A member of the RNA family "Alphaproteobacteria transfer-messenger RNA" from Hwanghaeella grinnelliae, 386 nucleotides long.

[Rfam]
RNA sequence: CCCCUUUCAGAACCGCUUUCCAAUCCCUAUAUUACGCGUGCCGGCUUCGGCCGGUUAUGACGCUAAAGGGUGGCAUGGAAUAAGCGCAGCGGACCCGGGGGCGGUACCCGGCGCCUCCACCAUGAGAACCGAUUUAUCCUGAUAACUCAGUGUUUUAGGGUCGGUUCUGAUGAUGGGGGCGAAAUAGGAUCGACGCGUGUAGUAAAGAUGCUUUCUGCGUUCGGUAUGGUAUCCGCCGUUAUCGGGCCACGGCUAUAAAUGCCAAUGAUAACGAAGAGAUGGUUGCCGUCGCCGCGUAACGCGGUCAAAGCGACACUUCGGAAUUCCUAGGCGGUUCAUCGCCGUCUAGGUGGGGUAUGGGGGACCUAGCAACAGAACCCCCCACU
Numbered sequence: 001c002c003c004c005u006u007u008c009a010g011a012a013c014c015g016c017u018u019u020c021c022a023a024u025c026c027c028u029a030u031a032u033u034a035c036g037c038g039u040g041c042c043g044g045c046u047u048c049g050g051c052c053g054g055u056u057a058u059g060a061c062g063c064u065a066a067a068g069g070g071u072g073g074c075a076u077g078g079a080a081u082a083a084g085c086g087c088a089g090c091g092g093a094c095c096c097g098g099g100g101g102c103g104g105u106a107c108c109c110g111g112c113g114c115c116u117c118c119a120c121c122a123u124g125a126g127a128a129c130c131g132a133u134u135u136a137u138c139c140u141g142a143u144a145a146c147u148c149a150g151u152g153u154u155u156u157a158g159g160g161u162c163g164g165u166u167c168u169g170a171u172g173a174u175g176g177g178g179g180c181g182a183a184a185u186a187g188g189a190u191c192g193a194c195g196c197g198u199g200u201a202g203u204a205a206a207g208a209u210g211c212u213u214u215c216u217g218c219g220u221u222c223g224g225u226a227u228g229g230u231a232u233c234c235g236c237c238g239u240u241a242u243c244g245g246g247c248c249a250c251g252g253c254u255a256u257a258a259a260u261g262c263c264a265a266u267g268a269u270a271a272c273g274a275a276g277a278g279a280u281g282g283u284u285g286c287c288g289u290c291g292c293c294g295c296g297u298a299a300c301g302c303g304g305u306c307a308a309a310g311c312g313a314c315a316c317u318u319c320g321g322a323a324u325u326c327c328u329a330g331g332c333g334g335u336u337c338a339u340c341g342c343c344g345u346c347u348a349g350g351u352g353g354g355g356u357a358u359g360g361g362g363g364a365c366c367u368a369g370c371a372a373c374a375g376a377a378c379c380c381c382c383c384a385c386u
Base pairs, nucleotide, nucleotide: 040055041054042053043052044051059221060220061219062218063217070214072212073211074210075209076208085199086198087197089196090195091194095111096110097109098108099107112181113180114179115178116177117176118175222238223237224236225235227249228248229247232245233244353367354366355365356364359383360382361381362380363379

The match comes from Rfam's covariance-model search (250 bits).
The base pairs follow the family's consensus structure, which is taken from published work.
The family is grouped with related families in Rfam's "tRNA clan".
Bacterial tmRNA, also known as 10Sa RNA or SsrA, is named for its dual tRNA and mRNA-like properties.
Rfam classes the family as a non-coding RNA gene.
Its family is annotated with RNA catabolic process in the Gene Ontology.
NCBI's taxonomy places the organism under Bacteria, Alphaproteobacteria, Rhodospirillales, Aestuariispiraceae, Hwanghaeella.